[Rfam]
The record is a 202-nucleotide RNA sequence from Bacillus aquiflavi, which matches "Group II catalytic intron D1-D4-5" in Rfam. For this family Rfam cites "Control of branch-site choice by a group II intron" (Chu et al., EMBO J, 2001). The organism belongs to Bacillus, within Bacteria. Rfam describes the family as follows. Group II introns are found in rRNA, tRNA and mRNA of organelles in fungi, plants and protists, and also in mRNA in bacteria. Rfam 15.1 lists 720 matches to the family in 418 species. Rfam links the family to the GO term Group II intron splicing.

RNA sequence: GAGAACUAUAUUUUCGAGUAGCUAAAUGAGAGGGUAACGCCUUGAAGAGCUACCGCUAAACUACGACGUGCACACAAACUGGUUAAGAGGAAGUGUGUACGAAGCUCGUUGAAGUCGGCUGAAAAGUACCGAAACAGAAUUGAAGCUGUCGAAAAGGAUCCGAAAUAAGGAACCUGUACUUGAUAGGCCGGGCGUCCAUGAA
Numbered sequence: 001g002a003g004a005a006c007u008a009u010a011u012u013u014u015c016g017a018g019u020a021g022c023u024a025a026a027u028g029a030g031a032g033g034g035u036a037a038c039g040c041c042u043u044g045a046a047g048a049g050c051u052a053c054c055g056c057u058a059a060a061c062u063a064c065g066a067c068g069u070g071c072a073c074a075c076a077a078a079c080u081g082g083u084u085a086a087g088a089g090g091a092a093g094u095g096u097g098u099a100c101g102a103a104g105c106u107c108g109u110u111g112a113a114g115u116c117g118g119c120u121g122a123a124a125a126g127u128a129c130c131g132a133a134a135c136a137g138a139a140u141u142g143a144a145g146c147u148g149u150c151g152a153a154a155a156g157g158a159u160c161c162g163a164a165a166u167a168a169g170g171a172a173c174c175u176g177u178a179c180u181u182g183a184u185a186g187g188c189c190g191g192g193c194g195u196c197c198a199u200g201a202a
Stems, first nucleotide, its partner, number of pairs: 018053006031043004054194004063109004067101009079089002116190005124181006130151003136147002155175003159171003